Overview:
The record is a 104-nucleotide RNA sequence from Thiohalocapsa marina, which matches "traJ-II RNA" in Rfam. By type it is a cis-regulatory element. The family's consensus secondary structure is taken from published work. NCBI's taxonomy places the organism under Bacteria, Pseudomonadota, Gammaproteobacteria, Chromatiaceae, Thiohalocapsa. A search with the family's covariance model found it, with a score of 92 bits. The family has 47 seed sequences and 174 matches in Rfam 15.1.
[Rfam]
RNA sequence: GGGCAGGAUGUGUGAAGUUAGCUAACCGUCAAGCCGGUUAUCUAUCUUCACUGGAUUUUAUUCACACCCAAGGGUGUUCAACGCUCAUCCUGCUCUGCGAGGCA
Numbered sequence: 001g002g003g004c005a006g007g008a009u010g011u012g013u014g015a016a017g018u019u020a021g022c023u024a025a026c027c028g029u030c031a032a033g034c035c036g037g038u039u040a041u042c043u044a045u046c047u048u049c050a051c052u053g054g055a056u057u058u059u060a061u062u063c064a065c066a067c068c069c070a071a072g073g074g075u076g077u078u079c080a081a082c083g084c085u086c087a088u089c090c091u092g093c094u095c096u097g098c099g100a101g102g103c104a
Stems, first nucleotide, its partner, number of pairs: 001095009012051006019044003024039005054086002057083001064077005